[Rfam]
RNA sequence: UGCAUGGGGUCGCGAUCACCCCAUGAGGCGUCAUGCUGAAGUAUCGCGUCCAUUGAACCGUUAUAACGGAGGGGCGCGUGAUG
Numbered sequence: 001u002g003c004a005u006g007g008g009g010u011c012g013c014g015a016u017c018a019c020c021c022c023a024u025g026a027g028g029c030g031u032c033a034u035g036c037u038g039a040a041g042u043a044u045c046g047c048g049u050c051c052a053u054u055g056a057a058c059c060g061u062u063a064u065a066a067c068g069g070a071g072g073g074g075c076g077c078g079u080g081a082u083g
Base pairs, nucleotide, nucleotide: 005023006022007021008020009019010018046077047076048075049074050073051072